A member of the RNA family "SAM (S-adenosyl methionine) riboswitch aptamer" from Nakamurella alba, 115 nucleotides long. The family's consensus secondary structure is taken from published work. Gene Ontology terms of the family: S-adenosylmethionine metabolic process and regulation of gene expression. The family is grouped with related families in Rfam's "SAM clan". The match comes from Rfam's covariance-model search (82 bits).
[Rfam]
Nucleotides: 115
Stems, first nucleotide, its partner, number of pairs: 001077004009037001011036006020029002038064003043060003047055002080104002083101007
Number, partner (000 for none) and nucleotide at each position: 001077g002076g003075u004074g005000a006000c007000g008000a009037g010000u011036u012035c013034c014033a015032g016031c017000c018000a019000c020029u021028g022000g023000c024000c025000c026000g027000g028021c029020a030000g031016g032015c033014u034013g035012g036011a037009c038064g039063g040062c041000a042000a043060c044059c045058c046000u047055u048054c049000g050000a051000c052000u053000c054048g055047a056000u057000g058045g059044g060043g061000u062040g063039c064038c065000c066000c067000g068000g069000g070000a071000u072000c073000a074004c075003a076002c077001c078000u079000g080104g081103c082000a083101c084100g085099g086098c087097g088096u089095c090000g091000g092000a093000g094000c095089g096088a097087u098086g099085c100084c101083g102000g103081g104080c105000a106000a107000g108000c109000g110000a111000c112000g113000u114000c115000g